[Rfam]
RNA sequence: UUAUUUUUAGGACGGUGGCUGUGUCAAUAUGCAACAUUCCAUUAGAUUUCCAUAUUGCACAUCUCCCGGCCCUAAAAUGG
Numbered sequence: 001u002u003a004u005u006u007u008u009a010g011g012a013c014g015g016u017g018g019c020u021g022u023g024u025c026a027a028u029a030u031g032c033a034a035c036a037u038u039c040c041a042u043u044a045g046a047u048u049u050c051c052a053u054a055u056u057g058c059a060c061a062u063c064u065c066c067c068g069g070c071c072c073u074a075a076a077a078u079g080g
Base pairs, nucleotide, nucleotide: 001080002079003078004077005076006075007074010071011070013068014067017064020061021060023058025057026056027055028054029053030052031051

Record summary
The record is an 80-nucleotide RNA from Drosophila busckii, which matches "mir-310 microRNA precursor family" in Rfam. The match comes from Rfam's covariance-model search (61 bits). The family is grouped with related families in Rfam's "mir-92 microRNA precursor clan". Lineage of the source: Eukaryota > Pterygota > Panorpida > Eremoneura > Dorsilopha. Gene Ontology terms of the family: head involution, miRNA-mediated post-transcriptional gene silencing and segmentation.